[Rfam]
RNA sequence: GAGCUGUGAUGACAUUGUGUUUACUGUGAUAGAUGGGUCUACCACACAACUCUGAACCUUUCAGACGAAUGUUAACACAUCUGAGCUC
Numbered sequence: 001g002a003g004c005u006g007u008g009a010u011g012a013c014a015u016u017g018u019g020u021u022u023a024c025u026g027u028g029a030u031a032g033a034u035g036g037g038u039c040u041a042c043c044a045c046a047c048a049a050c051u052c053u054g055a056a057c058c059u060u061u062c063a064g065a066c067g068a069a070u071g072u073u074a075a076c077a078c079a080u081c082u083g084a085g086c087u088c
Stems, first nucleotide, its partner, number of pairs: 001088004
Dot-bracket structure: ((((................................................................................))))
This 88-nucleotide RNA from Vigna radiata belongs to the Rfam family "small nucleolar RNA snoR114". The family has 24 seed sequences and 1,645 matches in Rfam 15.1. By type it is a C/D-box small nucleolar RNA. The family's consensus secondary structure was predicted with RNAalifold. Its family is annotated with nucleolus and RNA processing in the Gene Ontology. On this family, see Chen and Wu, Nucleic Acids Res 2009: "Mining small RNA sequencing data: a new approach to identify small nucleolar RNAs in Arabidopsis". Taxonomically the source falls in Vigna radiata (Eukaryota, Euphyllophyta, Mesangiospermae, Phaseoleae).